[Rfam]
RNA: Small nucleolar RNA snoR100
RNA sequence: CAAUGAAGGUAGCAUGGUAUGGUGCACGGAAAUCGAAUUUCAGGUCUACUUGUCUGCCCCCUCUGAUGUCCCUUGUUGCGGCUUUGAUUUGGGGGCCUGGUUCCGACCCACAUUU
Numbered sequence: 001c002a003a004u005g006a007a008g009g010u011a012g013c014a015u016g017g018u019a020u021g022g023u024g025c026a027c028g029g030a031a032a033u034c035g036a037a038u039u040u041c042a043g044g045u046c047u048a049c050u051u052g053u054c055u056g057c058c059c060c061c062u063c064u065g066a067u068g069u070c071c072c073u074u075g076u077u078g079c080g081g082c083u084u085u086g087a088u089u090u091g092g093g094g095g096c097c098u099g100g101u102u103c104c105g106a107c108c109c110a111c112a113u114u115u
Stems, first nucleotide, its partner, number of pairs: 012025004042098005052088003056082003